[Rfam]
This 105-nucleotide RNA belongs to the Rfam family "Vault RNA". The family's consensus secondary structure is taken from published work. This family of RNAs are found as part of the enigmatic vault ribonucleoprotein complex. The complex consists of a major vault protein (MVP), two minor vault proteins (VPARP and TEP1), and several small untranslated RNA molecules. It has been suggested that the vault complex is involved in drug resistance. Rfam classes the family as a non-coding RNA gene.
RNA sequence: GCGCCGGGUUAGCUCAGUGGUUACUUCUCAGCCAAAAGACAACUCUCAUGGCCGCCGGGUCUCCGGAAGCCAGAGAUCGAACCACGGGCACUGUCCAGCGUUUUA
Number, nucleotide and partner (000 for none) at each position: 001g000002c100003g099004c098005c000006g096007g095008g000009u000010u000011a000012g089013c088014u087015c086016a000017g085018u084019g083020g082021u000022u000023a000024c000025u081026u080027c079028u000029c000030a000031g000032c000033c000034a000035a000036a000037a000038g000039a000040c000041a000042a000043c000044u000045c000046u000047c000048a000049u000050g000051g000052c000053c000054g000055c000056c000057g000058g000059g000060u000061c000062u000063c000064c000065g000066g000067a000068a000069g000070c000071c000072a000073g000074a000075g000076a000077u000078c000079g027080a026081a025082c020083c019084a018085c017086g015087g014088g013089c012090a000091c000092u000093g000094u000095c007096c006097a000098g004099c003100g002101u000102u000103u000104u000105a000